[Rfam]
RNA sequence: UGAUAAUAUUAAAAUCACACUCUUAUAAUUCUAAGAAUAUUGCUUAGAAGUUUCUACGGAAUAACCGUAAAUUAUUCAGCUAAAGUGAGUUUAUCUCCUUU
Numbered sequence: 001u002g003a004u005a006a007u008a009u010u011a012a013a014a015u016c017a018c019a020c021u022c023u024u025a026u027a028a029u030u031c032u033a034a035g036a037a038u039a040u041u042g043c044u045u046a047g048a049a050g051u052u053u054c055u056a057c058g059g060a061a062u063a064a065c066c067g068u069a070a071a072u073u074a075u076u077c078a079g080c081u082a083a084a085g086u087g088a089g090u091u092u093a094u095c096u097c098c099u100u101u
Base pairs, nucleotide, nucleotide: 018087019086020085021084023083024082025081029049030048031047032046033045034044035043059077060076061075062074063073064072